[Rfam]
RNA sequence: GUGUGGAUGGUGUUCAGCACCAAGGACAGGUGUGUUUACCUGUAUGUGGAUGGUGUUCAGUACCAGGGAUAGGUGUGUCUAUCU
Numbered sequence: 001g002u003g004u005g006g007a008u009g010g011u012g013u014u015c016a017g018c019a020c021c022a023a024g025g026a027c028a029g030g031u032g033u034g035u036u037u038a039c040c041u042g043u044a045u046g047u048g049g050a051u052g053g054u055g056u057u058c059a060g061u062a063c064c065a066g067g068g069a070u071a072g073g074u075g076u077g078u079c080u081a082u083c084u
Stems, first nucleotide, its partner, number of pairs: 008065007016057007024045001026043007